Background: A member of the RNA family "SAH (S-adenosyl-L-homocysteine) riboswitch aptamer" from Sulfuriferula nivalis, 74 nucleotides long. For this family Rfam cites "Riboswitches that sense S-adenosylhomocysteine and activate genes involved in coenzyme recycling" (Wang et al., Mol Cell, 2008). Pairs were carried over by alignment from the consensus structure, which is taken from published work.
[Rfam]
RNA sequence: UGGUUUGAGGAGCGUUGCGACGGGGAAACCCUGCCAGGCUCAAACCGUUCAUAUAGCAACGACGCUCACGUCUU
Number, nucleotide and partner (000 for none) at each position: 001u000002g046003g045004u044005u043006u042007g041008a040009g000010g000011a000012g000013c000014g000015u000016u000017g000018c000019g000020a000021c033022g032023g031024g030025g029026a000027a000028a000029c025030c024031c023032u022033g021034c000035c000036a000037g000038g000039c000040u008041c007042a006043a005044a004045c003046c002047g000048u000049u000050c000051a000052u000053a000054u000055a000056g000057c000058a000059a000060c000061g000062a000063c000064g000065c000066u000067c000068a000069c000070g000071u000072c000073u000074u000